[Rfam]
RNA sequence: CUUGUCAGCGAUAAGGCAUUGGCGGAACCAAAACCGCAAAAGUGGCUUGGUGCCUCAAGAAGCUUGUGGCGUCAUUACAAGCGGUGAAAGCCUGCAAGGUACAUAGGGUAAACAAAUUUGGGCAGAGGCCGACGGGAAUGACGCUCCCGUCGGUUUUUG
Numbered sequence: 001c002u003u004g005u006c007a008g009c010g011a012u013a014a015g016g017c018a019u020u021g022g023c024g025g026a027a028c029c030a031a032a033a034c035c036g037c038a039a040a041a042g043u044g045g046c047u048u049g050g051u052g053c054c055u056c057a058a059g060a061a062g063c064u065u066g067u068g069g070c071g072u073c074a075u076u077a078c079a080a081g082c083g084g085u086g087a088a089a090g091c092c093u094g095c096a097a098g099g100u101a102c103a104u105a106g107g108g109u110a111a112a113c114a115a116a117u118u119u120g121g122g123c124a125g126a127g128g129c130c131g132a133c134g135g136g137a138a139u140g141a142c143g144c145u146c147c148c149g150u151c152g153g154u155u156u157u158u159g
Stems, first nucleotide, its partner, number of pairs: 001049001004046004022037004028121005050102006062082007069144007083092003125157013
This 159-nucleotide sequence belongs to the Rfam family "FuFi-1 RNA". The family's RNA type in Rfam is small RNA.